[Rfam]
RNA: Group I catalytic intron
Organism: Rhizopogon vinicolor
RNA sequence: UGGAGCUGGUACGUUACCUGUGCCAGAUUAGUCAGUAAUUACUAUUUAUAACUUCACUGUAUGCUGGAAACCCCUAAAGCCUUUAGGUACUAUAUAAUUUAUUUUAAUAAAAAGUAUCUUAAAUAAUUCUAUAAGUUAAAAUCUUAAAGGAUGUAACAAUGGAUAAUCAGCAGGAAACUAAAUAUUUUUAUAAAAAUGAAUUAAAGAAAGUAGGAUCCUCAGAGACUACACGUGAAGCUCCUUUAACAAGAGGAUGAAGAUAUAGUCCAUUAUACACAUGAAAGUAUGUA
Numbered sequence: 001u002g003g004a005g006c007u008g009g010u011a012c013g014u015u016a017c018c019u020g021u022g023c024c025a026g027a028u029u030a031g032u033c034a035g036u037a038a039u040u041a042c043u044a045u046u047u048a049u050a051a052c053u054u055c056a057c058u059g060u061a062u063g064c065u066g067g068a069a070a071c072c073c074c075u076a077a078a079g080c081c082u083u084u085a086g087g088u089a090c091u092a093u094a095u096a097a098u099u100u101a102u103u104u105u106a107a108u109a110a111a112a113a114g115u116a117u118c119u120u121a122a123a124u125a126a127u128u129c130u131a132u133a134a135g136u137u138a139a140a141a142u143c144u145u146a147a148a149g150g151a152u153g154u155a156a157c158a159a160u161g162g163a164u165a166a167u168c169a170g171c172a173g174g175a176a177a178c179u180a181a182a183u184a185u186u187u188u189u190a191u192a193a194a195a196a197u198g199a200a201u202u203a204a205a206g207a208a209a210g211u212a213g214g215a216u217c218c219u220c221a222g223a224g225a226c227u228a229c230a231c232g233u234g235a236a237g238c239u240c241c242u243u244u245a246a247c248a249a250g251a252g253g254a255u256g257a258a259g260a261u262a263u264a265g266u267c268c269a270u271u272a273u274a275c276a277c278a279u280g281a282a283a284g285u286a287u288g289u290a
Stems, first nucleotide, its partner, number of pairs: 006026008052237004057232001062172006073162002173218002178213003186206005222268001224267005239254005275288002278285002